[Rfam]
RNA sequence: UCGCUCGGAGGAUAGAGUAAGUCGCCCCGUCGCGGCUGGUCGAGAAAUUCUCG
Numbered sequence: 001u002c003g004c005u006c007g008g009a010g011g012a013u014a015g016a017g018u019a020a021g022u023c024g025c026c027c028c029g030u031c032g033c034g035g036c037u038g039g040u041c042g043a044g045a046a047a048u049u050c051u052c053g
Stems, first nucleotide, its partner, number of pairs: 020037006
A member of the RNA family "leuA-Halobacteria RNA" from Haladaptatus paucihalophilus, 53 nucleotides long. It is annotated as a cis-regulatory element. The source organism's lineage runs through Archaea, Methanobacteriota, Halobacteriales, Haladaptataceae and Haladaptatus paucihalophilus. The family's consensus secondary structure is taken from published work.